[Rfam]
RNA sequence: GGUCAGUGAUGAGAUGUAAAAGGUCCGAAGCCUUCGUCUCUCUCUCCAGUCCUUCUGUCCCUCCCAGCAGCCACGGUUAAUUUUUCUCCAGCUUGCUCUAGUCGUGCAUCGCUGGUUCGAGGUGGCGGCUGAUAUUAUGGAUGAGUCUGCUGUAUAUUUAGAGUCUUUUAGAGAGCAAGACGACUUGAUAACAGCAGUGUCAAACAGUAACAUAACACACAGGAGGGCCGGACUGAAGGAGAACGUCUGGCAGGCUCAUGAUCUCAAGUUUUCAAGCUGAGACC
Numbered sequence: 001g002g003u004c005a006g007u008g009a010u011g012a013g014a015u016g017u018a019a020a021a022g023g024u025c026c027g028a029a030g031c032c033u034u035c036g037u038c039u040c041u042c043u044c045u046c047c048a049g050u051c052c053u054u055c056u057g058u059c060c061c062u063c064c065c066a067g068c069a070g071c072c073a074c075g076g077u078u079a080a081u082u083u084u085u086c087u088c089c090a091g092c093u094u095g096c097u098c099u100a101g102u103c104g105u106g107c108a109u110c111g112c113u114g115g116u117u118c119g120a121g122g123u124g125g126c127g128g129c130u131g132a133u134a135u136u137a138u139g140g141a142u143g144a145g146u147c148u149g150c151u152g153u154a155u156a157u158u159u160a161g162a163g164u165c166u167u168u169u170a171g172a173g174a175g176c177a178a179g180a181c182g183a184c185u186u187g188a189u190a191a192c193a194g195c196a197g198u199g200u201c202a203a204a205c206a207g208u209a210a211c212a213u214a215a216c217a218c219a220c221a222g223g224a225g226g227g228c229c230g231g232a233c234u235g236a237a238g239g240a241g242a243a244c245g246u247c248u249g250g251c252a253g254g255c256u257c258a259u260g261a262u263c264u265c266a267a268g269u270u271u272u273c274a275a276g277c278u279g280a281g282a283c284c
Stems, first nucleotide, its partner, number of pairs: 001284004036263001039260001043239003047235004061225004065131004070126002088115005096106001143201002147197002161186005167180003
Source information
Small Cajal body specific RNA 6: a 284-nucleotide sequence from Sinocyclocheilus grahami. A reference for the family is Darzacq et al. (2002), "Cajal body-specific small nuclear RNAs: a novel class of 2'-O-methylation and pseudouridylation guide RNAs", EMBO J. U88 is small Cajal body specific RNA (scaRNA). scaRNAs are a novel class of small nuclear RNAs which localise to the Cajal bodies. U88 is found associated with both fibrillarin and Gar1p and co-localises with coilin in Cajal bodies. The family has 17 seed sequences and 1,309 matches in Rfam 15.1. Lineage of the source: Eukaryota > Deuterostomia > Actinopterygii > Cyprinoidei > Sinocyclocheilus. The match comes from Rfam's covariance-model search (84 bits). Rfam links the family to the GO terms RNA processing and nucleolus.